[Rfam]
RNA sequence: GAAGCACGCCAGACCGCCGCUGGUGCAAUCAUGGAAACAUGGCACUGGAGGAACGUCCGGACUGCGCAGGGCAGCGUAGGAGGUAACACCUCUCCACCGCGAGGUGAGGAUCAGAGCAACAGAGACGAGCCGGUUCAGUCCGGGUGAAACGGGCAAUCUCUACGCGCAGCAAUACCAAAUAGGUGGACAUCGAGGCGGCCCGCUGAGUCCACGGGUAGGUAGCACCGAGCCGGGUGGCGACAUCCGGCCCAGAUUAAUGGCGGUCACAUGGCGGGCAACCGUCGUGCACAGAAUCCGGCUUAUCGGCGUGCUUCACAC
Number, nucleotide and partner (000 for none) at each position: 001g314002a313003a312004g311005c310006a309007c308008g307009c306010c305011a303012g265013a264014c263015c262016g261017c260018c259019g000020c048021u047022g046023g045024u044025g043026c042027a000028a040029u000030c000031a000032u000033g000034g000035a000036a000037a000038c000039a000040u028041g000042g026043c025044a024045c023046u022047g021048g020049a000050g000051g000052a000053a301054c000055g299056u000057c298058c297059g296060g295061a294062c169063u168064g167065c166066g000067c000068a000069g201070g200071g199072c198073a000074g165075c164076g163077u162078a161079g093080g092081a091082g090083g089084u000085a000086a000087c000088a000089c083090c082091u081092c080093u079094c108095c106096a105097c104098c103099g000100c000101g000102a000103g098104g097105u096106g095107a000108g094109g160110a159111u000112c000113a000114g158115a157116g154117c153118a000119a000120c000121a000122g000123a000124g000125a000126c000127g000128a000129g000130c143131c142132g141133g140134u000135u000136c000137a000138g000139u000140c133141c132142g131143g130144g000145u000146g000147a000148a000149a000150c000151g000152g000153g117154c116155a000156a000157u115158c114159u110160c109161u078162a077163c076164g075165c074166g065167c064168a063169g062170c000171a000172a000173u221174a220175c219176c218177a000178a000179a000180u000181a000182g000183g212184u211185g210186g209187a208188c207189a000190u000191c000192g000193a000194g204195g203196c202197g000198g072199c071200c070201c069202g196203c195204u194205g000206a000207g188208u187209c186210c185211a184212c183213g000214g000215g000216u000217a000218g176219g175220u174221a173222g000223c000224a000225c000226c000227g000228a000229g248230c247231c246232g245233g244234g243235u242236g241237g000238c000239g000240a000241c236242a235243u234244c233245c232246g231247g230248c229249c000250c000251a000252g000253a000254u000255u000256a000257a000258u000259g018260g017261c016262g015263g014264u013265c012266a000267c000268a000269u000270g000271g000272c000273g000274g000275g000276c000277a000278a000279c000280c000281g000282u000283c000284g000285u000286g000287c000288a000289c000290a000291g000292a000293a000294u061295c060296c059297g058298g057299c055300u000301u053302a000303u011304c000305g010306g009307c008308g007309u006310g005311c004312u003313u002314c001315a000316c000317a000318c000
RNA: Bacterial RNase P class A
Organism: Comamonas sp. BIGb0124